[Rfam]
Notes
NiCo (Nickel/Cobalt) riboswitch aptamer: a 101-nucleotide RNA from Spirochaeta lutea. Its Rfam clan is "NiCo_riboswitches".
RNA sequence: GUAUAUAAAACUGAUCAGGCCGCACCGGUACAGGUGUGUGGAGCCGGGCUGGAAACAGCAACAGGAAGCUGCGUUCCUGCUGCAAACCCUGUGGGACAGAA
Dot-bracket structure: ..........(((..(.(((.((((..........))))...)))..((((....)))).(((((......................)))))..).)))..